[Rfam]
Nucleotides: 133
Stems, first nucleotide, its partner, number of pairs: 004132005085102001086099005
Number, partner (000 for none) and nucleotide at each position: 001000a002000u003000u004132c005131u006130c007129a008128a009000c010000u011000c012000a013000g014000a015000u016000c017000u018000a019000a020000u021000c022000a023000u024000u025000c026000a027000a028000a029000c030000c031000c032000u033000g034000a035000a036000u037000g038000g039000a040000u041000u042000g043000g044000a045000u046000u047000c048000u049000g050000a051000g052000u053000a054000c055000a056000a057000u058000c059000c060000u061000g062000u063000a064000g065000u066000g067000g068000u069000a070000a071000a072000a073000c074000u075000c076000u077000c078000u079000g080000a081000u082000c083000a084000a085102a086099u087098c088097a089096a090095u091000c092000u093000c094000a095090g096089u097088u098087g099086g100000a101000u102085u103000a104000a105000u106000u107000u108000a109000c110000a111000a112000u113000c114000u115000a116000a117000a118000u119000u120000g121000c122000u123000g124000a125000g126000u127000u128008u129007u130006g131005a132004g133000a
The family of this 133-nucleotide RNA sequence from Lathyrus oleraceus is "Small nucleolar RNA Z247". It scores 39 bits against the family's covariance model. The family's RNA type in Rfam is C/D-box small nucleolar RNA. The source organism's lineage runs through Eukaryota, Tracheophyta, Euphyllophyta, Hologalegina and Lathyrus.